Shown here is a 47-nucleotide sequence from Stutzerimonas stutzeri, a member of the family "Guanidine-II riboswitch aptamer (mini-ykkC)". Simpler in structure and has fewer highly conserved nucleotide positions than the ykkC-yxkD leader. Despite this each of its two stem-loop structures directly bind free guanidine. Therefore, mini-ykkC RNA motif represents a distinct class of guanidine-sensing RNAs. Its crystal structure was also determined. Pairs were carried over by alignment from the consensus structure, which is taken from published work.
[Rfam]
RNA sequence: CGCUGAGGACGACCUCAGGCGGCACCAACUCACCGGGGACGGCCCCA
Numbered sequence: 001c002g003c004u005g006a007g008g009a010c011g012a013c014c015u016c017a018g019g020c021g022g023c024a025c026c027a028a029c030u031c032a033c034c035g036g037g038g039a040c041g042g043c044c045c046c047a
Stems, first nucleotide, its partner, number of pairs: 003018006035046004
Source information:
The organism belongs to Stutzerimonas, within Bacteria.